Vertebrate telomerase RNA: a 345-nucleotide sequence from Kryptolebias marmoratus. Clan: Telomerase clan. Lineage of the source: Eukaryota > Teleostei > Neoteleostei > Euacanthomorphacea > Kryptolebias. Pairs were carried over by alignment from the consensus structure, which is taken from published work.
[Rfam]
RNA sequence: UCUUUCUCGGGAUGUGGUUUCUAACCCUAAAAUGGUGUUCCUUCCUGUACUUAACGUUUGCUGUUUUCUCCCCUGGCUUUCAGCAAACUACAGGAGGGAUUUGAAGGCAGGCUGUGAGUAUUUCAGAAUUAAAAAAGCCAGGGAAGUCACUCCCGUGAAGCUCAGUUCCCUGCUUGAAACCCCGUGAAUUGCCGCCGUGGACAGCUUGGCUGCCGCGAAGAGUUCGUCUCUGUUGCUCCGGGGUUUUCCUGCCGGGAAUCUGUCAAUCUGAGCAGAAUAAAACCGAGCGAGGUGCCUCUGCCGAACCCCAGGUGGUCCGGUUAGACAACCUAGGCUCGAACAAUU
Numbered sequence: 001u002c003u004u005u006c007u008c009g010g011g012a013u014g015u016g017g018u019u020u021c022u023a024a025c026c027c028u029a030a031a032a033u034g035g036u037g038u039u040c041c042u043u044c045c046u047g048u049a050c051u052u053a054a055c056g057u058u059u060g061c062u063g064u065u066u067u068c069u070c071c072c073c074u075g076g077c078u079u080u081c082a083g084c085a086a087a088c089u090a091c092a093g094g095a096g097g098g099a100u101u102u103g104a105a106g107g108c109a110g111g112c113u114g115u116g117a118g119u120a121u122u123u124c125a126g127a128a129u130u131a132a133a134a135a136a137g138c139c140a141g142g143g144a145a146g147u148c149a150c151u152c153c154c155g156u157g158a159a160g161c162u163c164a165g166u167u168c169c170c171u172g173c174u175u176g177a178a179a180c181c182c183c184g185u186g187a188a189u190u191g192c193c194g195c196c197g198u199g200g201a202c203a204g205c206u207u208g209g210c211u212g213c214c215g216c217g218a219a220g221a222g223u224u225c226g227u228c229u230c231u232g233u234u235g236c237u238c239c240g241g242g243g244u245u246u247u248c249c250u251g252c253c254g255g256g257a258a259u260c261u262g263u264c265a266a267u268c269u270g271a272g273c274a275g276a277a278u279a280a281a282a283c284c285g286a287g288c289g290a291g292g293u294g295c296c297u298c299u300g301c302c303g304a305a306c307c308c309c310a311g312g313u314g315g316u317c318c319g320g321u322u323a324g325a326c327a328a329c330c331u332a333g334g335c336u337c338g339a340a341c342a343a344u345u
Stems, first nucleotide, its partner, number of pairs: 005158002008155005014150005044094003056088008072142006078135003161272005167266001169256004174251001178245007196217005202212004219231004285337004290331004304322004

Gene Ontology terms of the family: telomerase activity, telomere maintenance via telomerase and telomerase catalytic core complex. It is annotated as a non-coding RNA gene. Rfam's curators write: Telomerase is a ribonucleoprotein reverse transcriptase that synthesises telomeric DNA. Telomerase RNAs differ greatly in sequence and structure between vertebrates, ciliates and yeasts, but they share a 5' pseudoknot structure close to the template sequence.